Shown here is a 111-nucleotide sequence from Oncorhynchus tshawytscha, a member of the family "Y RNA". The family's consensus secondary structure is taken from published work. Rfam classes the family as a non-coding RNA gene. Lineage of the source: Eukaryota > Eumetazoa > Deuterostomia > Osteoglossocephalai > Oncorhynchus.
[Rfam]
RNA sequence: GACUGGUCCGAUUGUAGUGGGUACAAACGAUUCAUAAUGUUCACAGUCAGUUACGUAGAGUCCACAUUUGUGACCCCCAACCUGCUCACUACACAACUUGACUAGUCUUUU
Numbered sequence: 001g002a003c004u005g006g007u008c009c010g011a012u013u014g015u016a017g018u019g020g021g022u023a024c025a026a027a028c029g030a031u032u033c034a035u036a037a038u039g040u041u042c043a044c045a046g047u048c049a050g051u052u053a054c055g056u057a058g059a060g061u062c063c064a065c066a067u068u069u070g071u072g073a074c075c076c077c078c079a080a081c082c083u084g085c086u087c088a089c090u091a092c093a094c095a096a097c098u099u100g101a102c103u104a105g106u107c108u109u110u111u
Stems, first nucleotide, its partner, number of pairs: 001107008010099002016090006032073003036069002